[Rfam]
RNA sequence: ACGUUAUGGUGUGGACAAAUUCAUUUAUCGUUAAUUUAGUUUCUGUCGUUAUUAAUGAAACGACUUGUUUUUUAAACAAUAAUAGUAAAUGAUGCCAUGCAUAAACGAAGUAUUGAUGACGAGACUCCUGAGGGAACAGGACGAGCUGAAGACUGCAGGCUGAGGCUGUCCCCUCGGAAAGCGAAGUCAUUCAAUACGAGUUUUAUCAUAAAAAAGAAGCGCUA
Numbered sequence: 001a002c003g004u005u006a007u008g009g010u011g012u013g014g015a016c017a018a019a020u021u022c023a024u025u026u027a028u029c030g031u032u033a034a035u036u037u038a039g040u041u042u043c044u045g046u047c048g049u050u051a052u053u054a055a056u057g058a059a060a061c062g063a064c065u066u067g068u069u070u071u072u073u074a075a076a077c078a079a080u081a082a083u084a085g086u087a088a089a090u091g092a093u094g095c096c097a098u099g100c101a102u103a104a105a106c107g108a109a110g111u112a113u114u115g116a117u118g119a120c121g122a123g124a125c126u127c128c129u130g131a132g133g134g135a136a137c138a139g140g141a142c143g144a145g146c147u148g149a150a151g152a153c154u155g156c157a158g159g160c161u162g163a164g165g166c167u168g169u170c171c172c173c174u175c176g177g178a179a180a181g182c183g184a185a186g187u188c189a190u191u192c193a194a195u196a197c198g199a200g201u202u203u204u205a206u207c208a209u210a211a212a213a214a215a216g217a218a219g220c221g222c223u224a
Base pairs, nucleotide, nucleotide: 004211005210006209007208008207009206010205011204027044033042034041045064046063047062048061049060050059052058081202082201083200089098090097091096100107110197111196112195113194114193115191116190117189118188119187120186126178127177128176131174132173133172134171136169137168139166144161145160146159147158
This 224-nucleotide RNA sequence from Staphylococcus sp. HGB0015 belongs to the Rfam family "S. aureus tsr24 small RNA".
The source organism's lineage runs through Bacteria, Bacillati, Bacilli, Staphylococcaceae and Staphylococcus.
Rfam 15.1 lists 98 matches to the family in 21 species.
Pairs were carried over by alignment from the consensus structure, which was predicted with RNAfold.
A reference for the family is Carroll et al. (2016), "Genome-wide Annotation, Identification, and Global Transcriptomic Analysis of Regulatory or Small RNA Gene Expression in Staphylococcus aureus", MBio.